Annotation: Small nucleolar RNA SNORA28: a 122-nucleotide RNA from Neomonachus schauinslandi. ACA28 is a member of the H/ACA class of snoRNA that guide the sites of modification of uridines to pseudouridines. The family's RNA type in Rfam is H/ACA-box small nucleolar RNA.
RNA sequence: AAGCAGUGCUAUGGCAGAUGAUGGACAUUGUCUGACACAAUUUGAGCUUGCCAUGGCAAGAAAGUCUAACCUGUUCCAGUGUUCUCCUCCAUGAGACCAACUGUUAUAUAGACUUCAACAGU
Numbered sequence: 001a002a003g004c005a006g007u008g009c010u011a012u013g014g015c016a017g018a019u020g021a022u023g024g025a026c027a028u029u030g031u032c033u034g035a036c037a038c039a040a041u042u043u044g045a046g047c048u049u050g051c052c053a054u055g056g057c058a059a060g061a062a063a064g065u066c067u068a069a070c071c072u073g074u075u076c077c078a079g080u081g082u083u084c085u086c087c088u089c090c091a092u093g094a095g096a097c098c099a100a101c102u103g104u105u106a107u108a109u110a111g112a113c114u115u116c117a118a119c120a121g122u
Base pairs, nucleotide, nucleotide: 009044010039012037013036015034016033017032018031019030020029062115063114064113065112066111067110068109072108073107074106077103078102079101080100083096084095085094086093
Dot-bracket structure: ........((.((.((((((........)))))).)).)....).................(((((((...(((..((((..((((......))))...))))..)))))))))).......
The base pairs follow the family's consensus structure, which was predicted with RNAfold. The match comes from Rfam's covariance-model search (109 bits).